The record is a 93-nucleotide RNA sequence from Dromaius novaehollandiae, which matches "Small nucleolar RNA SNORD91 family" in Rfam. On this family, see Huttenhofer et al., EMBO J 2001: "RNomics: an experimental approach that identifies 201 candidates for novel, small, non-messenger RNAs in mouse". It scores 64 bits against the family's covariance model. The pairing is the family consensus, mapped onto this sequence.
[Rfam]
RNA sequence: CAUGGAAGCCUGUGAUGUCUUAGCCAUGAUGUCUGAACCUGGCUGAAGGACUCUUCUGAAGACACACCCUCAGGCUCUGAGGCUUCCAGGGGA
Numbered sequence: 001c002a003u004g005g006a007a008g009c010c011u012g013u014g015a016u017g018u019c020u021u022a023g024c025c026a027u028g029a030u031g032u033c034u035g036a037a038c039c040u041g042g043c044u045g046a047a048g049g050a051c052u053c054u055u056c057u058g059a060a061g062a063c064a065c066a067c068c069c070u071c072a073g074g075c076u077c078u079g080a081g082g083c084u085u086c087c088a089g090g091g092g093a
Base pairs, nucleotide, nucleotide: 004087005086006085007084008083009082010081